[Rfam]
RNA sequence: GUAAUCCUUCGGGGCAGGGUGGAAUUCCCUACCGGCGGUGUUAGAGGCAGUGGCCUCUUCAGUCCGUGAGCUGCGGUUUACAUAACCAAUGCUGACCUGGUGUGAAUCCGGGACCGACAGUAUAGUCUGGAUGGGAGAAGGAUAUG
Number, nucleotide and partner (000 for none) at each position: 001g000002u000003a000004a143005u142006c141007c140008u139009u138010c137011g000012g000013g000014g000015c000016a000017g029018g028019g027020u000021g000022g000023a000024a000025u000026u000027c019028c018029c017030u000031a126032c125033c116034g115035g067036c066037g065038g064039u000040g000041u000042u000043a000044g000045a000046g000047g000048c000049a000050g000051u000052g000053g000054c000055c000056u000057c000058u000059u000060c000061a000062g114063u113064c038065c037066g036067u035068g000069a000070g092071c091072u000073g000074c000075g000076g000077u000078u000079u000080a000081c000082a000083u000084a000085a000086c000087c000088a000089a000090u000091g071092c070093u000094g000095a000096c112097c111098u110099g109100g108101u000102g000103u000104g000105a000106a000107u000108c100109c099110g098111g097112g096113a063114c062115c034116g033117a000118c129119a128120g127121u000122a000123u000124a000125g032126u031127c120128u119129g118130g000131a000132u000133g000134g000135g000136a000137g010138a009139a008140g007141g006142a005143u004144a000145u000146g000
Description
A member of the RNA family "FMN riboswitch aptamer (RFN element)" from Aneurinibacillus migulanus, 146 nucleotides long. It scores 111 bits against the family's covariance model. Pairs were carried over by alignment from the consensus structure, which is taken from published work.